[Rfam]
RNA sequence: UGGCUCGGUUUCCUGGGCGGUGGGCUCAGCCUCCUCCACCUCCCCUCAGACGAGCCUAGAGGAGAGAGGCCAGGCUUCCUCCCCUGGGAGUGGCUUUCAAGAAGGGAGCCUCGCCCAGGCUGUCCUAGCCUCACACUU
Numbered sequence: 001u002g003g004c005u006c007g008g009u010u011u012c013c014u015g016g017g018c019g020g021u022g023g024g025c026u027c028a029g030c031c032u033c034c035u036c037c038a039c040c041u042c043c044c045c046u047c048a049g050a051c052g053a054g055c056c057u058a059g060a061g062g063a064g065a066g067a068g069g070c071c072a073g074g075c076u077u078c079c080u081c082c083c084c085u086g087g088g089a090g091u092g093g094c095u096u097u098c099a100a101g102a103a104g105g106g107a108g109c110c111u112c113g114c115c116c117a118g119g120c121u122g123u124c125c126u127a128g129c130c131u132c133a134c135a136c137u138u
Stems, first nucleotide, its partner, number of pairs: 002056006015044003019040006066132005072126003078119003086111003

A member of the RNA family "Small Cajal body specific RNA 21" from Echinops telfairi, 138 nucleotides long. A reference for the family is Schattner et al. (2006), "A computational screen for mammalian pseudouridylation guide H/ACA RNAs", RNA. Rfam 15.1 lists 278 matches to the family in 138 species. Rfam classes the family as a small Cajal body RNA. The base pairs follow the family's consensus structure, which was predicted with RNAalifold. The organism belongs to Echinops, within Eukaryota. scaRNAs are a specific class of small nuclear RNAs which localise to the Cajal bodies and guide the modification of RNA polymerase II transcribed spliceosomal RNAs U1, U2, U4, U5 and U12. ACA68 (SCARNA21) is a member of the H/ACA class of snoRNAs that guide the sites of modification of uridines to pseudouridines. This snoRNA was identified by computational screening and its expression in mouse experimentally verified by Northern blot and primer extension analysis. ACA68 is proposed to guide the pseudouridylation of residue U19 in U12 snRNA. Rfam links the family to the GO terms RNA processing, nucleolus and Cajal body.